[Rfam]
RNA sequence: GACAAGCGAUGGCAGGCUUAGAACGCGACAUCCUGUCGCCUCGCUUGCACUAGCACUUCUUGUGCG
Numbered sequence: 001g002a003c004a005a006g007c008g009a010u011g012g013c014a015g016g017c018u019u020a021g022a023a024c025g026c027g028a029c030a031u032c033c034u035g036u037c038g039c040c041u042c043g044c045u046u047g048c049a050c051u052a053g054c055a056c057u058u059c060u061u062g063u064g065c066g
Base pairs, nucleotide, nucleotide: 012048013047014046015045016044017043025039026038027037028036029035053065054064055063056062
The family of this 66-nucleotide RNA from Siminovitchia fortis is "Bacillaceae-1 RNA".